Background
The record is a 79-nucleotide RNA from Hermetia illucens, which matches "drz-agam-1 ribozyme" in Rfam. Pairs were carried over by alignment from the consensus structure, which is taken from published work. Rfam links the family to the GO term catalytic activity. A reference for the family is Webb et al. (2009), "Widespread occurrence of self-cleaving ribozymes", Science.
RNA sequence: UACUACCAAACCCUAUCUCCACCUCCACGUGGUGACCGCUAGAAGCUUUUUCUUCAUGAAAAACUGCAGACGGAGAAGG
Dot-bracket structure: ...........(((.(.((.(((.......)))...........(.((((((.....)))))).)......)).).)))